[Rfam]
RNA sequence: GACAGAAAAGGGCACGGUAGGGGCGACCCUACACACGCAAAGCCACGGGUCUCGUGGAGUCUGAGAGAGUAGCUCGAAGGACAAGAUGAGAUCGCCGGGUUCCCUGU
Numbered sequence: 001g002a003c004a005g006a007a008a009a010g011g012g013c014a015c016g017g018u019a020g021g022g023g024c025g026a027c028c029c030u031a032c033a034c035a036c037g038c039a040a041a042g043c044c045a046c047g048g049g050u051c052u053c054g055u056g057g058a059g060u061c062u063g064a065g066a067g068a069g070u071a072g073c074u075c076g077a078a079g080g081a082c083a084a085g086a087u088g089a090g091a092u093c094g095c096c097g098g099g100u101u102c103c104c105u106g107u
Stems, first nucleotide, its partner, number of pairs: 012038002017032006041101004046097003049092006

Shown here is a 107-nucleotide sequence from a Fimbriimonadaceae bacterium, a member of the family "c-di-GMP-I riboswitch aptamer".
The match comes from Rfam's covariance-model search (39 bits).
The organism belongs to Fimbriimonadaceae, within Bacteria.
Rfam links the family to the GO term cyclic-di-GMP binding.
The base pairs follow the family's consensus structure, which is taken from published work.
Rfam describes the family as follows. GEMM was predicted in a large-scale screen for bacterial structured RNA regulatory elements. Genes associated with GEMM are involved in a diverse array of functions, including chemotaxis regulation, signal transduction, secretion and chitin.